[Rfam]
RNA: Group II catalytic intron D1-D4-3
Organism: Haloactinospora alba
RNA sequence: GUCACCGUGAGGCGGGGUCGGGAGGAAGCCCGAGACGAAACCCUGCGCUGAGGAACGCGAACCGCAUACAAGGCAGUCCGGUCGGGGUGAGUCGGCCACGGACGGCGAAGUCCGCCACCGCCAAGACGGCCGGGGUGUAGAUGCGGCAGGCGCAGGGAGAGAGUGGCUCUU
Numbered sequence: 001g002u003c004a005c006c007g008u009g010a011g012g013c014g015g016g017g018u019c020g021g022g023a024g025g026a027a028g029c030c031c032g033a034g035a036c037g038a039a040a041c042c043c044u045g046c047g048c049u050g051a052g053g054a055a056c057g058c059g060a061a062c063c064g065c066a067u068a069c070a071a072g073g074c075a076g077u078c079c080g081g082u083c084g085g086g087g088u089g090a091g092u093c094g095g096c097c098a099c100g101g102a103c104g105g106c107g108a109a110g111u112c113c114g115c116c117a118c119c120g121c122c123a124a125g126a127c128g129g130c131c132g133g134g135g136u137g138u139a140g141a142u143g144c145g146g147c148a149g150g151c152g153c154a155g156g157g158a159g160a161g162a163g164u165g166g167c168u169c170u171u
Stems, first nucleotide, its partner, number of pairs: 002015002005012002028171001032167001035164002041157005048149003062146006073138003077134007085113004091106004
Dot-bracket structure: .((.((....)).))............(...(..((....(((((..(((...........((((((.....(((.(((((((.((((..((((........))))...))))..............))))))).)))..)))))))))...))))).....))..)...)